[Rfam]
RNA: Y RNA-like
RNA sequence: UUGGCGAAUGCUGGUAGGACUACAUGGCGGCGCGGGUUCGAAUCCCGCCCUGCGCAAGCGGGUAGCUCAGUGGGUAGAGCACAAACUGUCCUCCAAAACCUUGUCGCCAUGGC
Numbered sequence: 001u002u003g004g005c006g007a008a009u010g011c012u013g014g015u016a017g018g019a020c021u022a023c024a025u026g027g028c029g030g031c032g033c034g035g036g037u038u039c040g041a042a043u044c045c046c047g048c049c050c051u052g053c054g055c056a057a058g059c060g061g062g063u064a065g066c067u068c069a070g071u072g073g074g075u076a077g078a079g080c081a082c083a084a085a086c087u088g089u090c091c092u093c094c095a096a097a098a099c100c101u102u103g104u105c106g107c108c109a110u111g112g113c
Stems, first nucleotide, its partner, number of pairs: 002109006014094001016092004025083002032048005039074001049062005065080004